[Rfam]
RNA sequence: GGUUAAGAGCGUCAGCGUGAGGCCCGGCCGGCUGACCGGCGUCCCUCCCACCACGGCGGGACGCCCCGGGAAGACCUGGCGGCACGGCAGGCGUGCCGCGAGUGCGCGGA
Numbered sequence: 001g002g003u004u005a006a007g008a009g010c011g012u013c014a015g016c017g018u019g020a021g022g023c024c025c026g027g028c029c030g031g032c033u034g035a036c037c038g039g040c041g042u043c044c045c046u047c048c049c050a051c052c053a054c055g056g057c058g059g060g061a062c063g064c065c066c067c068g069g070g071a072a073g074a075c076c077u078g079g080c081g082g083c084a085c086g087g088c089a090g091g092c093g094u095g096c097c098g099c100g101a102g103u104g105c106g107c108g109g110a
Base pairs, nucleotide, nucleotide: 001076002075003074004073009037011036012035013034014033015032016031021029022028038065039064040063044060045059047056048055079099080098081097082096083095084094085093086092

The family of this 110-nucleotide sequence from Streptosporangium becharense is "SAM (S-adenosyl methionine) riboswitch aptamer". Pairs were carried over by alignment from the consensus structure, which is taken from published work. Lineage of the source: Bacteria > Actinomycetota > Actinomycetes > Streptosporangiaceae > Streptosporangium. A search with the family's covariance model found it, with a score of 62 bits.